[Rfam]
This 101-nucleotide sequence from Tatumella ptyseos belongs to the Rfam family "Gammaprotebacteria rimP leader". For this family Rfam cites "Premature terminator analysis sheds light on a hidden world of bacterial transcriptional attenuation" (Naville and Gautheret, Genome Biol, 2010). NCBI's taxonomy places the organism under Bacteria, Pseudomonadati, Gammaproteobacteria, Tatumella, Tatumella ptyseos.
RNA sequence: UCGCAUGGCGAAAAACACAGGGUCCAGUGAUAAAAAGCCCCGAAUAUUCGGGGUUUUUUGUUAUCAGGUAAUCGUAAUUUUGGGCUUCAGGCCCUUUUUUU
Numbered sequence: 001u002c003g004c005a006u007g008g009c010g011a012a013a014a015a016c017a018c019a020g021g022g023u024c025c026a027g028u029g030a031u032a033a034a035a036a037g038c039c040c041c042g043a044a045u046a047u048u049c050g051g052g053g054u055u056u057u058u059u060g061u062u063a064u065c066a067g068g069u070a071a072u073c074g075u076a077a078u079u080u081u082g083g084g085c086u087u088c089a090g091g092c093c094c095u096u097u098u099u100u101u
Base pairs, nucleotide, nucleotide: 034057035056036055037054038053039052040051041050042049082094083093084092085091